[Rfam]
RNA: sul1 RNA
Organism: Palleronia abyssalis
RNA sequence: UUCGGACCCGGGUGAAACUCCCGGGUGGCUCUCCCGGCCGCCGAUCCGCCGGGGCAAC
Numbered sequence: 001u002u003c004g005g006a007c008c009c010g011g012g013u014g015a016a017a018c019u020c021c022c023g024g025g026u027g028g029c030u031c032u033c034c035c036g037g038c039c040g041c042c043g044a045u046c047c048g049c050c051g052g053g054g055c056a057a058c
Stems, first nucleotide, its partner, number of pairs: 006026006033053006